[Rfam]
RNA sequence: AAAACAAGUGCUAUAUAAAUAGCCAAACAUAUUUUGCUUUCCGAGUAGUGCCUCCUGUGAGGCACUUUUUUUAUCCG
Number, nucleotide and partner (000 for none) at each position: 001a072002a071003a070004a069005c000006a067007a066008g065009u000010g000011c000012u000013a000014u000015a000016u000017a000018a000019a000020u000021a038022g037023c036024c000025a034026a033027a032028c000029a000030u000031a000032u027033u026034u025035u000036g023037c022038u021039u000040u000041c000042c000043g000044a000045g000046u000047a000048g000049u064050g063051c062052c061053u060054c059055c000056u000057g000058u000059g054060a053061g052062g051063c050064a049065c008066u007067u006068u000069u004070u003071u002072u001073a000074u000075c000076c000077g000
The family of this 77-nucleotide RNA from Aggregatibacter actinomycetemcomitans is "Aggregatibacter sRNA 20". From the family's description: Validated by RT-PCR and Northern blot. The organism belongs to Aggregatibacter actinomycetemcomitans, within Bacteria. The pairing is the family consensus, mapped onto this sequence. Rfam classes the family as a small RNA.